The family of this 168-nucleotide RNA from Paenibacillus sp. FSL R5-0912 is "c-di-AMP riboswitch aptamer (ydaO/yuaA leader)".
[Rfam]
RNA sequence: UGUGAAUGCACGCUGAAUUUCCGCCAAGCGGAAAACGGGGGAACCAUCAGGCCGCAGGCCUACUUGGGGUGAAUCCGAAGGAGACUUCAAUUGCGCAGUCUCAAAAGGUAGGGCGACUCUCACCGUCCGAAUCCGACAGCUAACCCCGUAAGCGUAAAGAGAGAGAUC
Numbered sequence: 001u002g003u004g005a006a007u008g009c010a011c012g013c014u015g016a017a018u019u020u021c022c023g024c025c026a027a028g029c030g031g032a033a034a035a036c037g038g039g040g041g042a043a044c045c046a047u048c049a050g051g052c053c054g055c056a057g058g059c060c061u062a063c064u065u066g067g068g069g070u071g072a073a074u075c076c077g078a079a080g081g082a083g084a085c086u087u088c089a090a091u092u093g094c095g096c097a098g099u100c101u102c103a104a105a106a107g108g109u110a111g112g113g114c115g116a117c118u119c120u121c122a123c124c125g126u127c128c129g130a131a132u133c134c135g136a137c138a139g140c141u142a143a144c145c146c147c148g149u150a151a152g153c154g155u156a157a158a159g160a161g162a163g164a165g166a167u168c
Base pairs, nucleotide, nucleotide: 011154012153013152014151018034019033020032021031022030023029024028035149036148037147038146039145040144045066046065067134068133069132075108076107111128112127113126114125